[Rfam]
RNA: mir-48 microRNA precursor family
Organism: Caenorhabditis elegans
RNA sequence: GGGAACUUGAGGUAGGCUCAGUAGAUGCGAAUUGAACGGUAUCUCACAUCCACCAGCCUAGCUCGCAUUCCC
Numbered sequence: 001g002g003g004a005a006c007u008u009g010a011g012g013u014a015g016g017c018u019c020a021g022u023a024g025a026u027g028c029g030a031a032u033u034g035a036a037c038g039g040u041a042u043c044u045c046a047c048a049u050c051c052a053c054c055a056g057c058c059u060a061g062c063u064c065g066c067a068u069u070c071c072c
Stems, first nucleotide, its partner, number of pairs: 001072005008065004013060005021053002024050004029045002